This 84-nucleotide RNA sequence from Papaver somniferum belongs to the Rfam family "Small nucleolar RNA R44/J54/Z268 family".
Its Rfam clan is "SNORD74 clan".
RNA sequence: UGUGCAAGUGAUGACAGUAUAGACAGGGACUCGGACUCUACGGAGAAAUGGUCGAUUUGUCUUUGGGAAAAUAUCUGAUGCACU
Numbered sequence: 001u002g003u004g005c006a007a008g009u010g011a012u013g014a015c016a017g018u019a020u021a022g023a024c025a026g027g028g029a030c031u032c033g034g035a036c037u038c039u040a041c042g043g044a045g046a047a048a049u050g051g052u053c054g055a056u057u058u059g060u061c062u063u064u065g066g067g068a069a070a071a072u073a074u075c076u077g078a079u080g081c082a083c084u
Base pairs, nucleotide, nucleotide: 002083003082004081005080006079